[Rfam]
Rfam assigns this 109-nucleotide RNA from Eilatimonas milleporae to the family "Glycine riboswitch aptamer".
RNA sequence: GGGUCAGAUGCGGGAGAGACCGCGCCCGGUCCGGCCUGUCCGGUUCGUGUGCGGCGCCGAAGGAGCAACCGCCCCGGAAACUCUCAGGCAAAAGGACCGCAUCGGAUUG
Number, nucleotide and partner (000 for none) at each position: 001g000002g000003g000004u000005c000006a000007g103008a102009u101010g100011c099012g098013g097014g000015a000016g000017a000018g000019a000020c054021c053022g052023c051024g050025c049026c000027c000028g000029g000030u000031c000032c000033g000034g000035c000036c000037u000038g000039u000040c000041c000042g000043g000044u000045u000046c000047g000048u000049g025050u024051g023052c022053g021054g020055c000056g089057c088058c087059g085060a084061a000062g000063g083064a082065g081066c000067a000068a000069c077070c076071g000072c000073c000074c000075c000076g070077g069078a000079a000080a000081c065082u064083c063084u060085c059086a000087g058088g057089c056090a000091a000092a000093a000094g000095g000096a000097c013098c012099g011100c010101a009102u008103c007104g000105g000106a000107u000108u000109g000